[Rfam]
Overview
This 84-nucleotide RNA sequence from Chironomus riparius belongs to the Rfam family "mir-263 microRNA precursor family". Gene Ontology terms of the family: miRNA-mediated post-transcriptional gene silencing and RISC complex. The family has 52 seed sequences and 368 matches in Rfam 15.1. A reference for the family is Li et al. (2009), "Direct sequencing and expression analysis of a large number of miRNAs in Aedes aegypti and a multi-species survey of novel mosquito miRNAs", BMC Genomics. Pairs were carried over by alignment from the consensus structure, which was predicted with RNAalifold.
RNA sequence: AUUGGACGAAUCUUGGCACUUGGAGAAUUCACAGUUUUAUUUUAUCUGCUUCUGUGGAUCUUUUGGUGCCAUUAUUUGACGAUC
Numbered sequence: 001a002u003u004g005g006a007c008g009a010a011u012c013u014u015g016g017c018a019c020u021u022g023g024a025g026a027a028u029u030c031a032c033a034g035u036u037u038u039a040u041u042u043u044a045u046c047u048g049c050u051u052c053u054g055u056g057g058a059u060c061u062u063u064u065g066g067u068g069c070c071a072u073u074a075u076u077u078g079a080c081g082a083u084c
Stems, first nucleotide, its partner, number of pairs: 003082001005080001007078004014071005020065001022063001023061001025060002029057006